RNA sequence: AACCAUUCCAGUAACUUUCUUUGCAUAUGUACUUAGCUGUACUAUGAGUGGUUGGUUUGUAUGAGAUGGUU
Numbered sequence: 001a002a003c004c005a006u007u008c009c010a011g012u013a014a015c016u017u018u019c020u021u022u023g024c025a026u027a028u029g030u031a032c033u034u035a036g037c038u039g040u041a042c043u044a045u046g047a048g049u050g051g052u053u054g055g056u057u058u059g060u061a062u063g064a065g066a067u068g069g070u071u
Base pairs, nucleotide, nucleotide: 004059005058008055009054010053011052014049015048016047024046025045026044027043029042030041031040032039
RNA: mir-1244 microRNA precursor family